Shown here is a 44-nucleotide RNA sequence from Barrientosiimonas humi, a member of the family "L31-Actinobacteria ribosomal protein leader". A search with the family's covariance model found it, with a score of 36 bits. By type it is a cis-regulatory leader. The source organism's lineage runs through Bacteria, Bacillati, Actinomycetota, Actinomycetes and Barrientosiimonas.
[Rfam]
RNA sequence: UGGUCACCGGUUCACGCCUGGCACAAGCCGGGCGACCCGGAGAC
Numbered sequence: 001u002g003g004u005c006a007c008c009g010g011u012u013c014a015c016g017c018c019u020g021g022c023a024c025a026a027g028c029c030g031g032g033c034g035a036c037c038c039g040g041a042g043a044c
Base pairs, nucleotide, nucleotide: 003044007040008039009038010037015034016033017032018031019030020029021028022027